[Rfam]
Shown here is a 121-nucleotide RNA sequence from Serratia rubidaea, a member of the family "RtT RNA". Taxonomically the source falls in Serratia (Bacteria, Pseudomonadati, Gammaproteobacteria, Yersiniaceae). The literature on the family includes a 1991 paper in Nucleic Acids Res by Bosl and Kersten, "A novel RNA product of the tyrT operon of Escherichia coli". The family has 57 seed sequences and 651 matches in Rfam 15.1. Gene Ontology term of the family: cellular response to amino acid starvation. Rfam's curators write: This family represents a bacterial cis-regulatory element known as RtT RNA. The exact function of RtT is unknown although it is thought that it may be involved in changing the cellular response in relation to amino acid starvation. It scores 74 bits against the family's covariance model.
RNA sequence: AGUAAGUGGAAUCGGACAGGAUGAGAACCGUAAGGUUCGAGUCUCACGACAGUGAGACAACAUCACGCAGUGAUGGCCCGAAGGGCGAGGCGUAAGCCGAGUAAUCCUGCACGACCCACCA
Number, nucleotide and partner (000 for none) at each position: 001a000002g000003u000004a000005a000006g000007u000008g000009g000010a000011a000012u000013c000014g112015g000016a000017c109018a108019g107020g106021a000022u104023g000024a000025g000026a000027a000028c000029c087030g086031u000032a000033a000034g000035g000036u082037u081038c080039g079040a000041g000042u000043c054044u000045c000046a000047c000048g000049a000050c000051a000052g000053u000054g043055a000056g000057a000058c000059a000060a000061c075062a074063u073064c072065a071066c070067g000068c000069a000070g066071u065072g064073a063074u062075g061076g000077c000078c000079c039080g038081a037082a036083g000084g000085g000086c030087g029088a000089g000090g000091c000092g000093u000094a000095a000096g000097c000098c000099g000100a000101g000102u000103a000104a022105u000106c020107c019108u018109g017110c000111a000112c014113g000114a000115c000116c000117c000118a000119c000120c000121a000